[Rfam]
RNA sequence: AGACCGUUUCUGAAACCAGUAGUGAAGUAUGUUAUUUAAUUCGAUGAUCCGCGAAAAACCUUACCACAGCUUGCAUAAUAAUUUCAUUAAAAUGUUACAAGCGCUGCAUGGCUGUCUUUAGUUAAUGUCGUGAGAUUUGGUUAACUCCUUUAAUUAACGAAAACCCUCACUUUAUUUAUUUAUAUAGAGUGGUUCACUACUACAUUAGACUAGAUAAUAGGGAUUAAGACAAGUCAUUAUGGCCUAAAUGCUGUGGGCUAUAGACGUGCCACAUACGCCUUUACAAAGGGAUGCGAUAUUGUGAAAUGGAGCUAAUCCCCAAAAAAGGAAAUAUUAUGGAUUGUAGUCUGUAACUCGACUACAUGAAAAAGGAAUUACUAGUAAUCGUGAAUCACCAACGUCACGGUGAAUUUUUUCUCAGUUAGGUACUAACCACUCGUCAGGCGCUGAAAAAAGAAGAUGCAGUAAGUUUGAUUUUUUCUGUGUAAAAUUAUAUAUAAUUAGGUAUAUAAAUAUGCAGAAAAGUUUUCGUAUGCAAAACUUUGAUUGGUGUUAAGUCGAAAUAAGGUUCGUGUAAUGGAAAUUGCACGGGGAGUAUAA
Numbered sequence: 001a002g003a004c005c006g007u008u009u010c011u012g013a014a015a016c017c018a019g020u021a022g023u024g025a026a027g028u029a030u031g032u033u034a035u036u037u038a039a040u041u042c043g044a045u046g047a048u049c050c051g052c053g054a055a056a057a058a059c060c061u062u063a064c065c066a067c068a069g070c071u072u073g074c075a076u077a078a079u080a081a082u083u084u085c086a087u088u089a090a091a092a093u094g095u096u097a098c099a100a101g102c103g104c105u106g107c108a109u110g111g112c113u114g115u116c117u118u119u120a121g122u123u124a125a126u127g128u129c130g131u132g133a134g135a136u137u138u139g140g141u142u143a144a145c146u147c148c149u150u151u152a153a154u155u156a157a158c159g160a161a162a163a164c165c166c167u168c169a170c171u172u173u174a175u176u177u178a179u180u181u182a183u184a185u186a187g188a189g190u191g192g193u194u195c196a197c198u199a200c201u202a203c204a205u206u207a208g209a210c211u212a213g214a215u216a217a218u219a220g221g222g223a224u225u226a227a228g229a230c231a232a233g234u235c236a237u238u239a240u241g242g243c244c245u246a247a248a249u250g251c252u253g254u255g256g257g258c259u260a261u262a263g264a265c266g267u268g269c270c271a272c273a274u275a276c277g278c279c280u281u282u283a284c285a286a287a288g289g290g291a292u293g294c295g296a297u298a299u300u301g302u303g304a305a306a307u308g309g310a311g312c313u314a315a316u317c318c319c320c321a322a323a324a325a326a327g328g329a330a331a332u333a334u335u336a337u338g339g340a341u342u343g344u345a346g347u348c349u350g351u352a353a354c355u356c357g358a359c360u361a362c363a364u365g366a367a368a369a370a371g372g373a374a375u376u377a378c379u380a381g382u383a384a385u386c387g388u389g390a391a392u393c394a395c396c397a398a399c400g401u402c403a404c405g406g407u408g409a410a411u412u413u414u415u416u417c418u419c420a421g422u423u424a425g426g427u428a429c430u431a432a433c434c435a436c437u438c439g440u441c442a443g444g445c446g447c448u449g450a451a452a453a454a455a456g457a458a459g460a461u462g463c464a465g466u467a468a469g470u471u472u473g474a475u476u477u478u479u480u481c482u483g484u485g486u487a488a489a490a491u492u493a494u495a496u497a498u499a500a501u502u503a504g505g506u507a508u509a510u511a512a513a514u515a516u517g518c519a520g521a522a523a524a525g526u527u528u529u530c531g532u533a534u535g536c537a538a539a540a541c542u543u544u545g546a547u548u549g550g551u552g553u554u555a556a557g558u559c560g561a562a563a564u565a566a567g568g569u570u571c572g573u574g575u576a577a578u579g580g581a582a583a584u585u586g587c588a589c590g591g592g593g594a595g596u597a598u599a600a
Base pairs, nucleotide, nucleotide: 001430002429003427004426005425007424010421011420012419013418015414019378020377021376022375023374024272027269028268029267030266031265032264033263034261035260040055041054042053043052064256065255066254067253068252069251070250076097077096078082085094086093087092100245101244103243104242105241106240109239110238111234112233113232114230115229116228117227121158122157123156124155125154126153127136128135129134139148140147164222165221166220167219169190170189171188172187173186174185175184193213194212198208278328279327280326281325282324288319289318290317293312294311298307299306300305337368342363343362344361345360346359347358348357384407385406386405387404388403389402390401433567435564438560439559443554444553445552446551447550448549449548450547453544454543455542456541461537462536463535464534469530473526476524477523478522479521569592570591571590572589573588574587575586576585577584578583

Bacterial small subunit ribosomal RNA: a 600-nucleotide part of an RNA. Clan: SSU clan. A search with the family's covariance model found it, with a score of 682 bits.